[Rfam]
RNA: nhaA-I RNA
RNA sequence: GGGUGUGGCCCUUGCAAUCGGCGGGGGCCACAGGUUUUUUGCGUUGGUCGGGCCGCCACG
Dot-bracket structure: ....(((((((((((.....)))))))))))..........(((.(((......))))))
Numbered sequence: 001g002g003g004u005g006u007g008g009c010c011c012u013u014g015c016a017a018u019c020g021g022c023g024g025g026g027g028c029c030a031c032a033g034g035u036u037u038u039u040u041g042c043g044u045u046g047g048u049c050g051g052g053c054c055g056c057c058a059c060g
Stems, first nucleotide, its partner, number of pairs: 005031011042060003046057003